[Rfam]
Background: This 91-nucleotide RNA from Stutzerimonas stutzeri belongs to the Rfam family "Bacterial small signal recognition particle RNA". The sequence is in the family's curated seed alignment.
RNA sequence: GGUCCCCUCGCAACGAUCAGCCGUGAACCCGGUCAGGCCCGGAAGGGAGCAGCCGCAGCGGUGACAUUGUGUGCCGGGGUGUGGCUGGUAG
Numbered sequence: 001g002g003u004c005c006c007c008u009c010g011c012a013a014c015g016a017u018c019a020g021c022c023g024u025g026a027a028c029c030c031g032g033u034c035a036g037g038c039c040c041g042g043a044a045g046g047g048a049g050c051a052g053c054c055g056c057a058g059c060g061g062u063g064a065c066a067u068u069g070u071g072u073g074c075c076g077g078g079g080u081g082u083g084g085c086u087g088g089u090a091g
Stems, first nucleotide, its partner, number of pairs: 001086004006079005011071001013070005020062005030055004038047003